[Rfam]
RNA sequence: CAAGUUGUGCAAAAGUGCUUACAGUGCAGGUAGCAGGGUGCAUCUACUGCAGUGUAAGCACUUAUUGCAUUACCUU
Numbered sequence: 001c002a003a004g005u006u007g008u009g010c011a012a013a014a015g016u017g018c019u020u021a022c023a024g025u026g027c028a029g030g031u032a033g034c035a036g037g038g039u040g041c042a043u044c045u046a047c048u049g050c051a052g053u054g055u056a057a058g059c060a061c062u063u064a065u066u067g068c069a070u071u072a073c074c075u076u
Base pairs, nucleotide, nucleotide: 004073005072007070009068010067011066013063014062015061016060017059018058019057020056021055022054023053025051026050027049029048030047031046032045033044
RNA: mir-17 microRNA precursor family
Organism: Chiloscyllium punctatum